Rfam assigns this 86-nucleotide RNA sequence from Ureibacillus massiliensis to the family "pan motif".
It scores 68 bits against the family's covariance model.
Rfam classes the family as a cis-regulatory element.
Pairs were carried over by alignment from the consensus structure, which is taken from published work.
The source organism's lineage runs through Bacteria, Bacillati, Bacilli, Caryophanales and Ureibacillus massiliensis.
RNA sequence: UGGACAGUAUCUUUUUGAACUGUACCUAUAAUUUGUUUACUACUAAAAAACAGUCUGCCUUGAUCUUUUAAGACAAGGACGGAAGA
Numbered sequence: 001u002g003g004a005c006a007g008u009a010u011c012u013u014u015u016u017g018a019a020c021u022g023u024a025c026c027u028a029u030a031a032u033u034u035g036u037u038u039a040c041u042a043c044u045a046a047a048a049a050a051c052a053g054u055c056u057g058c059c060u061u062g063a064u065c066u067u068u069u070a071a072g073a074c075a076a077g078g079a080c081g082g083a084a085g086a
Stems, first nucleotide, its partner, number of pairs: 002026002004023005010018002055082003058078005064073003